[Rfam]
The record is a 76-nucleotide RNA from Tyzzerella sp. An114, which matches "pemK RNA" in Rfam. It is annotated as a cis-regulatory element.
RNA sequence: AUAAUGAUACUUCCACCGAGUCUCAGUUAUCGCAAAGACGGUGGUCUCCACGAAGGGGAAGGUGAGAUGCCUAUGA
Numbered sequence: 001a002u003a004a005u006g007a008u009a010c011u012u013c014c015a016c017c018g019a020g021u022c023u024c025a026g027u028u029a030u031c032g033c034a035a036a037g038a039c040g041g042u043g044g045u046c047u048c049c050a051c052g053a054a055g056g057g058g059a060a061g062g063u064g065a066g067a068u069g070c071c072u073a074u075g076a
Base pairs, nucleotide, nucleotide: 012073013044014043015042016041017040018039045059046058047057049055060072061071062070
The organism belongs to Tyzzerella, within Bacteria.